Background
Shown here is a 97-nucleotide RNA sequence from Paenibacillus stellifer, a member of the family "Purine riboswitch aptamer".

RNA sequence: AGAACCAAUUAAACAGCAGUUCGUAUAACCCUGAUAAUCGGUUCGGGGGCUCUACUAGGAUCCGUAAAACCUAACUACGAACGCAAUAUGAACGAUA
Numbered sequence: 001a002g003a004a005c006c007a008a009u010u011a012a013a014c015a016g017c018a019g020u021u022c023g024u025a026u027a028a029c030c031c032u033g034a035u036a037a038u039c040g041g042u043u044c045g046g047g048g049g050c051u052c053u054a055c056u057a058g059g060a061u062c063c064g065u066a067a068a069a070c071c072u073a074a075c076u077a078c079g080a081a082c083g084c085a086a087u088a089u090g091a092a093c094g095a096u097a
Stems, first nucleotide, its partner, number of pairs: 019082007029048006056073004